[Rfam]
RNA: Guanidine-I riboswitch aptamer
Nucleotides: 112
Base pairs, nucleotide, nucleotide: 007060008059009058010057011056012055015050016049020047021046022044023041024040025039026038027037028036061085062084063083064082065081066080067079068078087107089110093105094104095103
Number, partner (000 for none) and nucleotide at each position: 001000a002000g003000c004000a005000a006000a007060g008059u009058c010057u011056u012055c013000u014000a015050g016049g017000g018000u019000u020047c021046c022044g023041g024040g025039c026038u027037c028036c029000u030000c031000g032000c033000a034000g035000a036028g037027g038026a039025g040024u041023c042000g043000g044022c045000u046021g047020g048000u049016c050015c051000g052000a053000g054000a055012g056011a057010a058009g059008a060007c061085g062084c063083a064082u065081c066080g067079g068078c069000u070000u071000c072000c073000a074000g075000c076000a077000a078068g079067c080066c081065g082064g083063u084062g085061u086000a087107c088000a089110c090000g091000g092000c093105g094104g095103g096000a097000u098000a099000a100000a101000a102000g103095c104094c105093c106000g107087g108000g109000a110089g111000a112000a